[Rfam]
This 136-nucleotide RNA sequence from Cebus imitator belongs to the Rfam family "U4 spliceosomal RNA". From the family's description: U4 small nuclear RNA (U4 snRNA) is a component of the major U2-dependent spliceosome. Rfam links the family to the GO terms U4 snRNP and spliceosomal tri-snRNP complex assembly. The organism belongs to Cebus, within Eukaryota. By type it is a spliceosomal small nuclear RNA.
RNA sequence: AGCUUUGCACAGUGGCAGCAUUGUCGUUAUCCAAGGCGGGAUUAUUGCUAAUUGAAAGCUUUUCCCAAUACCCCACCGUGACGACUUGCAAUAUAGUUGGCACUGAAUUGGCAAUUUUUUACAGUAUCUAUGGAGA
Numbered sequence: 001a002g003c004u005u006u007g008c009a010c011a012g013u014g015g016c017a018g019c020a021u022u023g024u025c026g027u028u029a030u031c032c033a034a035g036g037c038g039g040g041a042u043u044a045u046u047g048c049u050a051a052u053u054g055a056a057a058g059c060u061u062u063u064c065c066c067a068a069u070a071c072c073c074c075a076c077c078g079u080g081a082c083g084a085c086u087u088g089c090a091a092u093a094u095a096g097u098u099g100g101c102a103c104u105g106a107a108u109u110g111g112c113a114a115u116u117u118u119u120u121a122c123a124g125u126a127u128c129u130a131u132g133g134a135g136a
Base pairs, nucleotide, nucleotide: 020042021041022040024038026037027036028035076111077110078103079102080101082099083098084097085096086095125136127134128133